[Rfam]
RNA sequence: AAUCAAAAAAUUUAUUUUUUACACGGAAACAAUGCCACAGUUGACUGAACCUGUCUUCUAACAGUAGUUAAUUGCCAGUGUUUCAAACAAGAUUUGAAAUACGAGUUUCCCAGAAUAAUUUUCAUUUGGACAGGAUAGGAAGUCCGAUUUCUGUGUUGUCUCAAGCGGGGCGAUAGGAUUGGGAUGUCGAAGAAAGUCUACAUUA
Numbered sequence: 001a002a003u004c005a006a007a008a009a010a011u012u013u014a015u016u017u018u019u020u021a022c023a024c025g026g027a028a029a030c031a032a033u034g035c036c037a038c039a040g041u042u043g044a045c046u047g048a049a050c051c052u053g054u055c056u057u058c059u060a061a062c063a064g065u066a067g068u069u070a071a072u073u074g075c076c077a078g079u080g081u082u083u084c085a086a087a088c089a090a091g092a093u094u095u096g097a098a099a100u101a102c103g104a105g106u107u108u109c110c111c112a113g114a115a116u117a118a119u120u121u122u123c124a125u126u127u128g129g130a131c132a133g134g135a136u137a138g139g140a141a142g143u144c145c146g147a148u149u150u151c152u153g154u155g156u157u158g159u160c161u162c163a164a165g166c167g168g169g170g171c172g173a174u175a176g177g178a179u180u181g182g183g184a185u186g187u188c189g190a191a192g193a194a195a196g197u198c199u200a201c202a203u204u205a
Base pairs, nucleotide, nucleotide: 025084026083027082028081039073040072041071042070043069044068045067046066047065051064052063053062054061118197119196120195121194125193126192142185143184144183145182147180149178150177151176152175155174156173157172158171159170160169161168162167
RNA: Small nucleolar RNA snR34
Organism: Saccharomyces paradoxus